Shown here is a 101-nucleotide RNA from Radiobacillus deserti, a member of the family "TPP riboswitch aptamer (THI element)". The family's consensus secondary structure is taken from published work.
[Rfam]
RNA sequence: AGUACUUACUAGGGGUGUCGUAAAAGACUGAGACAGAGUAAUCUGAACCCUUUGAACCUGAUCUGGGGAAUACCAGCGUAGGGAAGUGGGAAUAGAAUUUU
Numbered sequence: 001a002g003u004a005c006u007u008a009c010u011a012g013g014g015g016u017g018u019c020g021u022a023a024a025a026g027a028c029u030g031a032g033a034c035a036g037a038g039u040a041a042u043c044u045g046a047a048c049c050c051u052u053u054g055a056a057c058c059u060g061a062u063c064u065g066g067g068g069a070a071u072a073c074c075a076g077c078g079u080a081g082g083g084a085a086g087u088g089g090g091a092a093u094a095g096a097a098u099u100u101u
Base pairs, nucleotide, nucleotide: 006089007088008087009086010085011051012050013049014048016045017028018027019026035044036043037042057082058081059080060079063076064075065074066073